Shown here is a 310-nucleotide RNA sequence from Yersinia pestis, a member of the family "Yersinia sRNA 206".
5' located ORF: rssB. Exclusively detected in the crp mutant, suggesting CRP regulon is a regulator of the sRNA. CRP binding in a cAMP dependent manner was confirmed.
By type it is a small RNA.
The source organism's lineage runs through Bacteria, Gammaproteobacteria, Enterobacterales, Yersinia pseudotuberculosis complex and Yersinia pestis.
For this family Rfam cites "Transcriptomic profiling of Yersinia pseudotuberculosis reveals reprogramming of the Crp regulon by temperature and uncovers Crp as a master regulator of small RNAs" (Nuss et al., PLoS Genet, 2015).
[Rfam]
RNA sequence: CUGUGAUGUGCGUCACAUAAAAUAAUGAUAUUUACAGGAGCAACCCAUGAAAUUCAUCAAUAAAAUUAUCGCAAUGUUUGAAAAAAUGAACGUCUCAUUCGGCACUAUCAACGGUUAAUUAUUAUUUCUAAUCAUCCGUCAGUCUUCAUAAUAUUCUGAAUUAAAUUCGACAUGUAGGCAAUGAUACAGUAGCCAUUGUGAGUUAUCUGUGAAAUGAAAGCAUAAUAUGCAAUUACCUAUGUGUGGAAUAUUUUAUUAUUAGGUGCCGUUUAACCUUUUUAUUUAACUUAAUUCCGAAUGUUUACGCUGA
Dot-bracket structure: ...((((((((.............((((.((((.((((......)).))))))))))................((((((........))))))........)))).))))((((...((((.......))))...))))((((......(((((((.(((((((((((.(((((((((.(((..(((((((((((...)).)))).)))))........((((...)))).))).))))))))).))))...........((((........))))...........))))))).)))))))...)))).